[Rfam]
RNA sequence: CCAGUAUCACUUCCUUAUCACUUUUCCAGCCCAGCUUUCUAUCAUUAAUUGUUGGACGGAGAACUGAUAAGGCUGUGUGACUGC
Numbered sequence: 001c002c003a004g005u006a007u008c009a010c011u012u013c014c015u016u017a018u019c020a021c022u023u024u025u026c027c028a029g030c031c032c033a034g035c036u037u038u039c040u041a042u043c044a045u046u047a048a049u050u051g052u053u054g055g056a057c058g059g060a061g062a063a064c065u066g067a068u069a070a071g072g073c074u075g076u077g078u079g080a081c082u083g084c
Stems, first nucleotide, its partner, number of pairs: 013072008022063006030055002

This 84-nucleotide RNA from Aquarana catesbeiana belongs to the Rfam family "mir-184 microRNA precursor family".
A search with the family's covariance model found it, with a score of 75 bits.
Its family is annotated with gene silencing by miRNA and RISC complex in the Gene Ontology.
The base pairs follow the family's consensus structure, which was predicted with PFOLD.